[Rfam]
RNA sequence: UGACGGAGGGGCACUACCAGGAGUGGAGCCUACGGCUUAAUUUGACUCAACACGGGAAAACUUACCCGGCCCGGACGUGUUAUCGGUUGAACAGACUGACGGCUCUUUUUAGAGUUUGUGGAUGGUGGUGCAUGGCCGCAGUUGGUUCGUGGGGUGACCUGUCUGGUUAAUUCCGAUAAACGGACGAGAUUCUUGCUUACUAAAUACGUUAAUUCUUCCGAAUGGAAGAACUUGGCUUCUUAGAAGGACCGUCGGCUUCGAAGCCGUACGAAAAGGAGCGAUUGCAGGUCUGUGAUGCCCUAAGAUGUCCGGGGCCGCACGUGCGCUACAGUAGAGCGGACAACGUGCUUCUUUGUUCCUUGGCCUGUCGGCCUAGGUAACCAGAGCAGUCUGUCUCAGUGCUGGGGACAGGGGAUUGUAAUUGUUCCCCUCCAACGAGGAAUUCCUAGUAGGCGCGAGUCAUUAACUCGUGCCGACUAAGUCACUGCCCUUUGUACACA
Dot-bracket structure: (((((.(((((((..((..((((((.(((.((((((....((((........))))........(((((.(....((((..........((.(((........))).)).......))))...((.((((..(((((((((...(((((((((....)))...(((......)))....)))))).....((((.(((.((((..(..(........................)..)..)))))))..(...((((......))))...)...))))....)))).)))...).))))))).....).)))))...)).)))).))).)....((((((......((..........((..((((....))))..))....)).......))).))).......(....((((((..........))))))....).....))))).....((((((((.......))))))))......))...)))))))))).))..
Notes
Eukaryotic small subunit ribosomal RNA: a 500-nucleotide part of an RNA from Trichonephila clavipes. NCBI's taxonomy places the organism under Eukaryota, Arthropoda, Entelegynae, Orbiculariae, Trichonephila. The match comes from Rfam's covariance-model search (1457 bits). The base pairs follow the family's consensus structure, which is taken from published work. Gene Ontology terms of the family: structural constituent of ribosome and ribosome. The literature on the family includes a 2002 paper in BMC Bioinformatics by Cannone et al., "The comparative RNA web (CRW) site: an online database of comparative sequence and structure information for ribosomal, intron, and other RNAs". Its Rfam clan is "SSU clan".